[Rfam]
The record is a 131-nucleotide RNA from Anaerobacterium chartisolvens, which matches "c-di-GMP-I riboswitch aptamer" in Rfam.
Rfam describes the family as follows. GEMM was predicted in a large-scale screen for bacterial structured RNA regulatory elements. Genes associated with GEMM are involved in a diverse array of functions, including chemotaxis regulation, signal transduction, secretion and chitin.
Gene Ontology term of the family: cyclic-di-GMP binding.

RNA sequence: UAUUGAAAAUAGUAAACCCGUCGAAAGGCGGGGGCACAAAGCUACAAGUCUACGGUAUAAAUUAUUUAACAAUGGGCUGCCCGCCAAUUUAUUGUUAGGUAAUAGCUUACUAUGACGGUUGAGCCGCCAAU
Number, nucleotide and partner (000 for none) at each position: 001u000002a000003u000004u000005g000006a000007a000008a000009a000010u000011a000012g037013u036014a000015a000016a000017c032018c031019c030020g029021u028022c027023g000024a000025a000026a000027g022028g021029c020030g019031g018032g017033g000034g000035c000036a013037c012038a000039a000040a000041g124042c123043u122044a000045c121046a120047a119048g116049u115050c114051u000052a000053c000054g000055g110056u109057a108058u000059a000060a000061a000062u000063u000064a000065u000066u000067u000068a000069a000070c000071a000072a000073u000074g000075g000076g000077c000078u000079g000080c000081c000082c000083g000084c000085c000086a000087a000088u000089u000090u000091a000092u000093u000094g000095u000096u000097a000098g000099g000100u000101a000102a000103u000104a000105g000106c000107u000108u057109a056110c055111u000112a000113u000114g050115a049116c048117g000118g000119u047120u046121g045122a043123g042124c041125c000126g000127c000128c000129a000130a000131u000